Annotation: Shown here is a 167-nucleotide RNA sequence from Polarella glacialis, a member of the family "ACEA small nucleolar RNA U3". Lineage of the source: Eukaryota > Alveolata > Suessiales > Suessiaceae > Polarella. On this family, see Zwieb, Nucleic Acids Res 1997: "The uRNA database". Rfam links the family to the GO terms nucleolus and RNA processing. Clan: U3 clan. The family has 28 seed sequences and 2,156 matches in Rfam 15.1. The match comes from Rfam's covariance-model search (62 bits). The base pairs follow the family's consensus structure, which is taken from published work. Small nucleolar RNAs (snoRNAs) are involved in the processing and modification of rRNA in the nucleolus. There are two main classes of snoRNAs: the box C/D class, and the box H/ACA class.
[Rfam]
Nucleotides: 167
Stems, first nucleotide, its partner, number of pairs: 003039001006035001008034004017028002020025001045066001047064001049062004075166005094153004099148006106127003130142004
Number, partner (000 for none) and nucleotide at each position: 001000u002000c003039g004000a005000c006035u007000g008034u009033a010032c011031u012000u013000g014000c015000a016000c017028a018027g019000g020025a021000u022000c023000a024000c025020u026000a027018c028017u029000a030000c031011a032010g033009u034008g035006a036000u037000u038000c039003c040000u041000c042000u043000u044000g045066a046000a047064u048000a049062c050061u051060g052059u053000c054000a055000u056000a057000a058000a059052a060051c061050a062049g063000a064047g065000c066045u067000u068000c069000a070000c071000a072000g073000c074000a075166u076165c077164u078163c079162u080000g081000a082000u083000g084000a085000u086000g087000u088000c089000g090000a091000u092000c093000u094153u095152u096151g097150c098000a099148c100147u101146g102145a103144u104143a105000a106127g107126g108125a109000a110000u111000u112000u113000g114000c115000u116000g117000g118000a119000u120000c121000u122000u123000g124000c125108u126107c127106c128000c129000a130142g131141a132140u133139u134000g135000a136000u137000g138000a139133a140132a141131u142130c143104u144103a145102u146101c147100a148099g149000c150097g151096c152095a153094g154000u155000c156000u157000u158000c159000u160000g161000a162079a163078g164077a165076g166075a167000u